[Rfam]
PyrR binding site: a 112-nucleotide sequence from Pullulanibacillus pueri. Rfam classes the family as a cis-regulatory element. On this family, see Bonner et al., Nucleic Acids Res 2001: "Molecular recognition of pyr mRNA by the Bacillus subtilis attenuation regulatory protein PyrR". Rfam describes the family as follows. This family represents the PyrR binding site and terminator structure.
RNA sequence: AGAUCCUUUAAUAACAGUCCCGUGAGGCUGGAAAGGGUAACGGCAUAAAUCCAUCAAUGCGUGAUGGAUUUUUCAGAAACCUCUCCGCCCAUUGGCCGAGAGGUUUUUUGCU
Numbered sequence: 001a002g003a004u005c006c007u008u009u010a011a012u013a014a015c016a017g018u019c020c021c022g023u024g025a026g027g028c029u030g031g032a033a034a035g036g037g038u039a040a041c042g043g044c045a046u047a048a049a050u051c052c053a054u055c056a057a058u059g060c061g062u063g064a065u066g067g068a069u070u071u072u073u074c075a076g077a078a079a080c081c082u083c084u085c086c087g088c089c090c091a092u093u094g095g096c097c098g099a100g101a102g103g104u105u106u107u108u109u110g111c112u
Base pairs, nucleotide, nucleotide: 003038004037005036006035007034008033009032015030016029017028018027019026045073047071048070049069050068051067052066053065054064055063056062076107077106078105079104080103081102082101083100084099085098087096088095089094